RNA sequence: UCUCCCGCUUCUCCUCCCUGAGCGGGUAUCCCAGCGCUAGUUGGGAUAUUUUUAACCUCGGUUAUACUCCCCUUUAACCGAGGUUUUUUUCU
Dot-bracket structure: ...((((((...........)))))).(((((((......))))))).......((((((((((..........))))))))))........